[Rfam]
RNA sequence: GCCCGGGUGGCGGAAUUGGUAGACGCUACGGACUUAAAAUCCGUUGGGUAGGAAUACUCGUGUGGGUUCGAGUCCCACCCCGGGCA
Dot-bracket structure: (((((((..(((...........))).(((((.......))))).................(((((.......)))))))))))).